[Rfam]
RNA: Small nucleolar RNA Z107/R87
Organism: Cannabis sativa
RNA sequence: AAUCGCGGUGAUGACUCCAUAAUAUUCAAGCUCAACAGACCGGAAUGCAGGCUUCUCUUUAUAGAGGACUUUGCGUGUCGAUAAUCCCGCUGAACUGAGCGAUU
Numbered sequence: 001a002a003u004c005g006c007g008g009u010g011a012u013g014a015c016u017c018c019a020u021a022a023u024a025u026u027c028a029a030g031c032u033c034a035a036c037a038g039a040c041c042g043g044a045a046u047g048c049a050g051g052c053u054u055c056u057c058u059u060u061a062u063a064g065a066g067g068a069c070u071u072u073g074c075g076u077g078u079c080g081a082u083a084a085u086c087c088c089g090c091u092g093a094a095c096u097g098a099g100c101g102a103u104u
Stems, first nucleotide, its partner, number of pairs: 001104006